[Rfam]
Notes:
The family of this 309-nucleotide RNA sequence from Xanthomonas citri is "Xanthomonas sRNA asX4/Xoo4". On this family, see Schmidtke et al., Nucleic Acids Res 2011: "Genome-wide transcriptome analysis of the plant pathogen Xanthomonas identifies sRNAs with putative virulence functions". The base pairs follow the family's consensus structure, which was predicted with CMfinder. By type it is a small RNA. NCBI's taxonomy places the organism under Bacteria, Lysobacteraceae, Xanthomonas, Xanthomonas citri, Xanthomonas citri pv. citri.
RNA sequence: GUCAGACACACUGCACACGCACAUCGCGACUGAGUCGUGUUUUUGGCUUCAAGGAAAACGGACGCGUCGCCGCCACCCUAGAGGCGGCAUCCCCCGCGUGACGCCCUCUCAGGCACCGUCGUGACCAGAUUCCUUGUCUUGCUUGCCGUGCCCAGCGCCCGCGCCAGGCGCGCUUUCGAUCAGCUGGUCGCCGAGGUGUAGCGGUAGGACAGCAGCGAUUUCACCAGGAAGGUGAUCUGGGUGGCCGAGCGCGCAUCCACGCGCAUGACCGGCACGCGGAAGCCUUCGGCCACCAGGGCUUCGCGAAAG
Numbered sequence: 001g002u003c004a005g006a007c008a009c010a011c012u013g014c015a016c017a018c019g020c021a022c023a024u025c026g027c028g029a030c031u032g033a034g035u036c037g038u039g040u041u042u043u044u045g046g047c048u049u050c051a052a053g054g055a056a057a058a059c060g061g062a063c064g065c066g067u068c069g070c071c072g073c074c075a076c077c078c079u080a081g082a083g084g085c086g087g088c089a090u091c092c093c094c095c096g097c098g099u100g101a102c103g104c105c106c107u108c109u110c111a112g113g114c115a116c117c118g119u120c121g122u123g124a125c126c127a128g129a130u131u132c133c134u135u136g137u138c139u140u141g142c143u144u145g146c147c148g149u150g151c152c153c154a155g156c157g158c159c160c161g162c163g164c165c166a167g168g169c170g171c172g173c174u175u176u177c178g179a180u181c182a183g184c185u186g187g188u189c190g191c192c193g194a195g196g197u198g199u200a201g202c203g204g205u206a207g208g209a210c211a212g213c214a215g216c217g218a219u220u221u222c223a224c225c226a227g228g229a230a231g232g233u234g235a236u237c238u239g240g241g242u243g244g245c246c247g248a249g250c251g252c253g254c255a256u257c258c259a260c261g262c263g264c265a266u267g268a269c270c271g272g273c274a275c276g277c278g279g280a281a282g283c284c285u286u287c288g289g290c291c292a293c294c295a296g297g298g299c300u301u302c303g304c305g306a307a308a309g
Base pairs, nucleotide, nucleotide: 001047002046003045004044005043006042008040009039010038011037013035014034016032017031020028022026050136051135052134053133054132055131056130060126061125063123064122065121066120069088070087071086072085073084074083096114097113099111100110101109150205152203161169162168171198172197173196174193177190178189179188180187181186215304216303217302218301221235222234223233224232225231236298237297238296240294241293242292243291244290245289246288247287248286249283250282252278253277254276256274262271263270